[Rfam]
RNA: Lysine riboswitch aptamer
Organism: Dielma fastidiosa
RNA sequence: UAAAAAACAAGAGGUAGCGAUGUAGAAGAGUACAUUUGUGAGGAGGCAUCCUGUGAUCAAAUGGAAAGGCAGCCAUCGCCGAACAUGAGGAUAAGGCAUUAUGCUUGUGUGAGACUAUGGGAAAUACUCAUAGGAUUCCUACAUUUAUUGUAGAGGCGCUUUGUUUUAC
Numbered sequence: 001u002a003a004a005a006a007a008c009a010a011g012a013g014g015u016a017g018c019g020a021u022g023u024a025g026a027a028g029a030g031u032a033c034a035u036u037u038g039u040g041a042g043g044a045g046g047c048a049u050c051c052u053g054u055g056a057u058c059a060a061a062u063g064g065a066a067a068g069g070c071a072g073c074c075a076u077c078g079c080c081g082a083a084c085a086u087g088a089g090g091a092u093a094a095g096g097c098a099u100u101a102u103g104c105u106u107g108u109g110u111g112a113g114a115c116u117a118u119g120g121g122a123a124a125u126a127c128u129c130a131u132a133g134g135a136u137u138c139c140u141a142c143a144u145u146u147a148u149u150g151u152a153g154a155g156g157c158g159c160u161u162u163g164u165u166u167u168a169c
Stems, first nucleotide, its partner, number of pairs: 006164001009161003017079006023072001025070001033063006040057001083110007091102004111137002115133007139153005